RNA sequence: UGAUGUAAGUGUCUCAAGUAUAAAUUGCGUUUGUGCUCGCGCAAAUUAGCCCUUUAUACUUUUUGACACGCCGAACACCGAAAACGAAAUAUAAUGGUGUGUACACGCCCUUUUAUUUCGUGUUCGGUGUUCGAGGAUAGCGGGAAUUGCGUAUGCCUGGAGCAAUCCGGUUACAUCA
Dot-bracket structure: (((((((...(((...((((((((..(((.(((((....))))).)..))..))))))))....)))....((((((((......((((((......................))))))......)))))))).((((.((....(..((....)).)...)).))))...)))))))

This 178-nucleotide RNA belongs to the Rfam family "Clostridiales-1 RNA". The sequence is in the family's curated seed alignment. Pairs were carried over by alignment from the consensus structure, which is taken from published work. The family's RNA type in Rfam is small RNA.